[Rfam]
RNA: mir-252 microRNA precursor family
Organism: Homarus americanus
RNA sequence: CCUGGAUUCUAAGUAGUAGUGCCGCAGGUAAGAGUUUUACACGUUACCUACUCACAACUACUUAAACUGCUGG
Dot-bracket structure: ((.(.(...((((((((.(....(.(((((..............))))).)...).))))))))...).).))